A member of the RNA family "Bacterial RNase P class A" from Planctomycetales bacterium 10988, 397 nucleotides long.
[Rfam]
RNA sequence: AAGGUAUUUCAGAUGAUCGCUGGCGAACUUUCGCGAGAGGAAAGUCCGGGCUUCGCAGGACAAGAUGGUGGAUAACCUCCACCGGUCGCAAGACUAGGGAAAGUGCAACAGAAAAGAUACCGCCUUAGAGUGAAAACUCGGUAAGGGUGAAAUGGUGAGGUAAGAGCUCACCAGCAGGUGCGGCAACGCACUUGGCUUGGUAAACCCCAUCUGAAGCAAUGCCAAACAGAAAGCAUGGUCCCUCGGGGCCUCGGAUCGGUCCGGUCCGUGUUUUCGGGUAGGCUGCUUGAAACUCCAAGUAAUGGGAGUUCUAGAGAAAUGAUCAUCCCUCAUUCGGAGCGAAGGUCUCCUUCUUUCCGAUGAGAGACAGAACCCGGCUUAUCGAAAUACCUUGGCU
Numbered sequence: 001a002a003g004g005u006a007u008u009u010c011a012g013a014u015g016a017u018c019g020c021u022g023g024c025g026a027a028c029u030u031u032c033g034c035g036a037g038a039g040g041a042a043a044g045u046c047c048g049g050g051c052u053u054c055g056c057a058g059g060a061c062a063a064g065a066u067g068g069u070g071g072a073u074a075a076c077c078u079c080c081a082c083c084g085g086u087c088g089c090a091a092g093a094c095u096a097g098g099g100a101a102a103g104u105g106c107a108a109c110a111g112a113a114a115a116g117a118u119a120c121c122g123c124c125u126u127a128g129a130g131u132g133a134a135a136a137c138u139c140g141g142u143a144a145g146g147g148u149g150a151a152a153u154g155g156u157g158a159g160g161u162a163a164g165a166g167c168u169c170a171c172c173a174g175c176a177g178g179u180g181c182g183g184c185a186a187c188g189c190a191c192u193u194g195g196c197u198u199g200g201u202a203a204a205c206c207c208c209a210u211c212u213g214a215a216g217c218a219a220u221g222c223c224a225a226a227c228a229g230a231a232a233g234c235a236u237g238g239u240c241c242c243u244c245g246g247g248g249c250c251u252c253g254g255a256u257c258g259g260u261c262c263g264g265u266c267c268g269u270g271u272u273u274u275c276g277g278g279u280a281g282g283c284u285g286c287u288u289g290a291a292a293c294u295c296c297a298a299g300u301a302a303u304g305g306g307a308g309u310u311c312u313a314g315a316g317a318a319a320u321g322a323u324c325a326u327c328c329c330u331c332a333u334u335c336g337g338a339g340c341g342a343a344g345g346u347c348u349c350c351u352u353c354u355u356u357c358c359g360a361u362g363a364g365a366g367a368c369a370g371a372a373c374c375c376g377g378c379u380u381a382u383c384g385a386a387a388u389a390c391c392u393u394g395g396c397u
Stems, first nucleotide, its partner, number of pairs: 001393010011382001012327007020037002023034004042380003046377005051216004058262004063212005068082005083097001084095004098207002103205002105201002120146002122142003128139004154172006174196001175194008221283003229275006253267005291310006298303001
Background: Rfam describes the family as follows. Ribonuclease P (RNase P) is a ubiquitous endoribonuclease, found in archaea, bacteria and eukarya as well as chloroplasts and mitochondria. Taxonomically the source falls in Planctomycetales (Bacteria, Pseudomonadati, Planctomycetota, Planctomycetia). By type it is a ribozyme.